[Rfam]
RNA sequence: GGGGUACAGGCUUGGUACCGGGCAUGCAGGGGGUGGGUAGUGUGGUGGAGGUAGCAGGCAGCGCGGGGCUGGUGCUGUUGGUGGAAGAGGACAGGCGCCCGUCCUCCUCCUCCACCAGCAGCAGCCCCGCGCUGCCUGCUGCCUGCCGCAACACUACCCACCUCCUGCGUGCCCGGUGCCAAGCCUGCUGCACUCC
Numbered sequence: 001g002g003g004g005u006a007c008a009g010g011c012u013u014g015g016u017a018c019c020g021g022g023c024a025u026g027c028a029g030g031g032g033g034u035g036g037g038u039a040g041u042g043u044g045g046u047g048g049a050g051g052u053a054g055c056a057g058g059c060a061g062c063g064c065g066g067g068g069c070u071g072g073u074g075c076u077g078u079u080g081g082u083g084g085a086a087g088a089g090g091a092c093a094g095g096c097g098c099c100c101g102u103c104c105u106c107c108u109c110c111u112c113c114a115c116c117a118g119c120a121g122c123a124g125c126c127c128c129g130c131g132c133u134g135c136c137u138g139c140u141g142c143c144u145g146c147c148g149c150a151a152c153a154c155u156a157c158c159c160a161c162c163u164c165c166u167g168c169g170u171g172c173c174c175g176g177u178g179c180c181a182a183g184c185c186u187g188c189u190g191c192a193c194u195c196c
Base pairs, nucleotide, nucleotide: 001194002193004191005190007187012182013181018176019175020174021173022172023171024170025169026168032162033161034160037157038156040154041153048146050143051142053140054139055138057136058135059134062131063130064129065128066127067126068125069124070123074122075121076120077119079117080116081115082114083113084112085111087107089104090103091102092101

A member of the RNA family "MIR1144 microRNA precursor family" from Chlamydomonas reinhardtii, 196 nucleotides long.
Gene Ontology terms of the family: miRNA-mediated post-transcriptional gene silencing and RISC complex.
Rfam 15.1 lists 5 matches to the family in 2 species.
The family's consensus secondary structure was predicted with RNAalifold.